[Rfam]
RNA sequence: GCCGGUUUAGCUCAGCUGGUAGAGCAACCGCCUUGUAAGCGGUAGGUCGCGAGUUCAAGUCCCGCAACCGGCA
Numbered sequence: 001g002c003c004g005g006u007u008u009a010g011c012u013c014a015g016c017u018g019g020u021a022g023a024g025c026a027a028c029c030g031c032c033u034u035g036u037a038a039g040c041g042g043u044a045g046g047u048c049g050c051g052a053g054u055u056c057a058a059g060u061c062c063c064g065c066a067a068c069c070g071g072c073a
Stems, first nucleotide, its partner, number of pairs: 001072007010025004027043005049065003053061001
RNA: tRNA